[Rfam]
RNA sequence: AUCUGGGCAGCAAUUUUACGGACUGUCAUACCUGAGAAUGCUACAUUUUUGAGUCAAUCUCAGGUUUGUCAGCCCAUGAAAAGCUGUCUCUGC
Numbered sequence: 001a002u003c004u005g006g007g008c009a010g011c012a013a014u015u016u017u018a019c020g021g022a023c024u025g026u027c028a029u030a031c032c033u034g035a036g037a038a039u040g041c042u043a044c045a046u047u048u049u050u051g052a053g054u055c056a057a058u059c060u061c062a063g064g065u066u067u068g069u070c071a072g073c074c075c076a077u078g079a080a081a082a083g084c085u086g087u088c089u090c091u092g093c
Base pairs, nucleotide, nucleotide: 005090006089007088008086009085010084011083014081015080016079017078020075021074023072024071025070027068030065031064032063033062034061035060036059037058039056040055